About this RNA: Fungal signal recognition particle RNA: a 271-nucleotide RNA sequence from Eremomyces bilateralis. Clan: SRP clan. It is annotated as a non-coding RNA gene. The literature on the family includes a 2002 paper in Curr Opin Struct Biol by Wild et al., "Towards the structure of the mammalian signal recognition particle". Rfam 15.1 lists 748 matches to the family in 741 species. Rfam links the family to the GO terms signal recognition particle, endoplasmic reticulum targeting, signal recognition particle, plasma membrane targeting and SRP-dependent cotranslational protein targeting to membrane, signal sequence recognition. Pairs were carried over by alignment from the consensus structure, which is taken from published work.
[Rfam]
RNA sequence: UGGCUGUCAUGGUCGAAAGGUAGAGAAGAUGCAAUGGAUCCACUGCUUCUCCAACCCCAACCAAAAAUUGCCAGCAGAGGGUGCCGAGUUCGAGCCCGACGGUGGCUUCCCACUCAUGCAGGUAACUCAUGAUCGCUGUGGAAGUCUUAAGCAGAGAGAUAUUCUUGAGUCAAGCAAUUGGGCAGAGGACUCUCUCCGUUGGACGGCGUUGCCCGAUUACACUCACUCUGGGAAGGGUUGGCGGCGGUGGGAGUUGUAACAACUCUUUUUU
Number, nucleotide and partner (000 for none) at each position: 001u015002g014003g013004c012005u000006g000007u000008c000009a000010u000011g000012g004013u003014c002015g001016a000017a000018a270019g269020g268021u000022a266023g265024a264025g263026a000027a000028g260029a000030u258031g257032c256033a255034a254035u000036g000037g000038a000039u252040c251041c250042a000043c000044u247045g000046c000047u000048u244049c243050u000051c241052c240053a239054a238055c237056c236057c235058c000059a000060a000061c000062c000063a000064a000065a000066a000067a000068u000069u000070g000071c000072c230073a229074g228075c000076a227077g226078a000079g224080g223081g222082u221083g220084c000085c215086g214087a000088g212089u211090u000091c208092g207093a000094g204095c000096c202097c201098g200099a199100c198101g197102g196103u000104g146105g000106c144107u143108u142109c000110c141111c140112a139113c138114u132115c131116a130117u129118g128119c000120a127121g126122g000123u000124a000125a000126c121127u120128c118129a117130u116131g115132a114133u000134c000135g000136c000137u000138g113139u112140g111141g110142a108143a107144g106145u000146c104147u151148u000149a000150a000151g147152c000153a195154g194155a193156g192157a191158g190159a000160u000161a000162u000163u188164c187165u186166u185167g000168a000169g000170u000171c180172a179173a178174g000175c000176a000177a000178u173179u172180g171181g000182g000183c000184a000185g166186a165187g164188g163189a000190c158191u157192c156193u155194c154195u153196c102197c101198g100199u099200u098201g097202g096203a000204c094205g000206g000207c092208g091209u000210u000211g089212c088213c000214c086215g085216a000217u000218u000219a000220c083221a082222c081223u080224c079225a000226c077227u076228c074229u073230g072231g000232g000233a000234a000235g057236g056237g055238u054239u053240g052241g051242c000243g049244g048245c000246g000247g044248u000249g000250g041251g040252a039253g000254u034255u033256g032257u031258a030259a000260c028261a000262a000263c025264u024265c023266u022267u000268u020269u019270u018271u000